[Rfam]
RNA sequence: UCCGCUGUGGUGUAAUGGGUAGCACUGGGUCUUUUGGUGGCCUAAGUCCGGGUUCGAGUCCUGGCAGCGGAG
Numbered sequence: 001u002c003c004g005c006u007g008u009g010g011u012g013u014a015a016u017g018g019g020u021a022g023c024a025c026u027g028g029g030u031c032u033u034u035u036g037g038u039g040g041c042c043u044a045a046g047u048c049c050g051g052g053u054u055c056g057a058g059u060c061c062u063g064g065c066a067g068c069g070g071a072g
Base pairs, nucleotide, nucleotide: 001071002070003069004068005067006066007065010025011024012023013022027043028042029041030040031039048064049063050062051061052060

Shown here is a 72-nucleotide RNA from Streptomyces xinghaiensis, a member of the family "tRNA". The match comes from Rfam's covariance-model search (52 bits). NCBI's taxonomy places the organism under Bacteria, Bacillati, Actinomycetota, Streptomycetaceae, Streptomyces. It is annotated as a transfer RNA. The base pairs follow the family's consensus structure, which is taken from published work. Transfer RNA (tRNA) molecules are approximately 80 nucleotides in length. Their secondary structure includes four short double-helical elements and three loops (D, anti-codon, and T loops). Further hydrogen bonds mediate the characteristic L-shaped molecular structure. tRNAs have two regions of fundamental functional importance: the anti-codon, which is responsible for specific mRNA codon recognition, and the 3' end, to which the tRNAs corresponding amino acid is attached (by aminoacyl-tRNA synthetases). tRNAs cope with the degeneracy of the genetic code in two manners: having more than one tRNA (with a specific anti-codon) for a particular amino acid; and 'wobble' base-pairing, i.e. permitting non-standard base-pairing at the 3rd anti-codon position. Gene Ontology term of the family: triplet codon-amino acid adaptor activity.